Shown here is a 199-nucleotide RNA sequence from Hafnia alvei, a member of the family "GcvB RNA".
The literature on the family includes a 2000 paper in Mol Microbiol by Urbanowski et al., "The gcvB gene encodes a small untranslated RNA involved in expression of the dipeptide and oligopeptide transport systems in Escherichia coli".
Rfam's curators write: The gcvB gene encodes a small untranslated RNA involved in expression of the dipeptide and oligopeptide transport systems in Escherichia coli. Included several unknown homologues in alignment (Bateman A pers obs).
The base pairs follow the family's consensus structure, which is taken from published work.
Taxonomically the source falls in Hafnia alvei (Bacteria, Pseudomonadati, Gammaproteobacteria, Hafnia).

[Rfam]
RNA sequence: ACUUCCCGAGCCGGAACGAAAAAGUGUUUGUGGAUUUGGUUCCUGAAUACUUUUGGCUUUGUGGUUGUGAUGUUGUGUUUGCAAGUUGUCUGACGAUUUCAGACAUAGUAGCUAGGCUACUGUUUUUUUUCACUUCCUGUACAUUUACCCUGUCUGUCCAUAGUGAUUAGUAGCACCGCAAUUUGCGGUGCUUUUUUUU
Numbered sequence: 001a002c003u004u005c006c007c008g009a010g011c012c013g014g015a016a017c018g019a020a021a022a023a024g025u026g027u028u029u030g031u032g033g034a035u036u037u038g039g040u041u042c043c044u045g046a047a048u049a050c051u052u053u054u055g056g057c058u059u060u061g062u063g064g065u066u067g068u069g070a071u072g073u074u075g076u077g078u079u080u081g082c083a084a085g086u087u088g089u090c091u092g093a094c095g096a097u098u099u100c101a102g103a104c105a106u107a108g109u110a111g112c113u114a115g116g117c118u119a120c121u122g123u124u125u126u127u128u129u130u131c132a133c134u135u136c137c138u139g140u141a142c143a144u145u146u147a148c149c150c151u152g153u154c155u156g157u158c159c160a161u162a163g164u165g166a167u168u169a170g171u172a173g174c175a176c177c178g179c180a181a182u183u184u185g186c187g188g189u190g191c192u193u194u195u196u197u198u199u
Stems, first nucleotide, its partner, number of pairs: 009058004015054002022052005028047002032043003087105007107121006143171003172192008
Dot-bracket structure: ........((((..((.....(((((.((..(((......)))..)))))))))))))............................(((((((.....))))))).((((((...)))))).....................(((.......................)))((((((((.....)))))))).......